[Rfam]
RNA: PhotoRC-II RNA
RNA sequence: UAACAUGUCUCACCACACCCCAAACCGAGACCUAUAGGGUGUCUAAAUCACGUCUCUCAUAUCCCAAGGCGAGGGGUCUUGGGAAAUAGUAACUCCA
Numbered sequence: 001u002a003a004c005a006u007g008u009c010u011c012a013c014c015a016c017a018c019c020c021c022a023a024a025c026c027g028a029g030a031c032c033u034a035u036a037g038g039g040u041g042u043c044u045a046a047a048u049c050a051c052g053u054c055u056c057u058c059a060u061a062u063c064c065c066a067a068g069g070c071g072a073g074g075g076g077u078c079u080u081g082g083g084a085a086a087u088a089g090u091a092a093c094u095c096c097a
Stems, first nucleotide, its partner, number of pairs: 016041005022035001027056005062084007